[Rfam]
RNA sequence: UCACCGCCGGGCUCGGAUUCGCUUGGUGCAGGUCGGGACUAAUUCGCUGACACAGCCACGUGGAUUUUCCUUAUUGGUUUGUGAGCAGGGAUUGGAUCCCGCCUUGCAUCAACUGAAUCGGAGCCUCGAUGGUGAAA
Numbered sequence: 001u002c003a004c005c006g007c008c009g010g011g012c013u014c015g016g017a018u019u020c021g022c023u024u025g026g027u028g029c030a031g032g033u034c035g036g037g038a039c040u041a042a043u044u045c046g047c048u049g050a051c052a053c054a055g056c057c058a059c060g061u062g063g064a065u066u067u068u069c070c071u072u073a074u075u076g077g078u079u080u081g082u083g084a085g086c087a088g089g090g091a092u093u094g095g096a097u098c099c100c101g102c103c104u105u106g107c108a109u110c111a112a113c114u115g116a117a118u119c120g121g122a123g124c125c126u127c128g129a130u131g132g133u134g135a136a137a
Base pairs, nucleotide, nucleotide: 013122014121017118018117019116020115023112024111025110026109027108028107029106030105031104032103034101035100036099037098038097039095040094041093042092043091044090045089
MIR168 microRNA precursor family: a 137-nucleotide RNA from Brassica rapa. NCBI's taxonomy places the organism under Eukaryota, Tracheophyta, eudicotyledons, rosids, Brassica. A reference for the family is Jagadeeswaran et al. (2009), "Cloning and characterization of small RNAs from Medicago truncatula reveals four novel legume-specific microRNA families", New Phytol.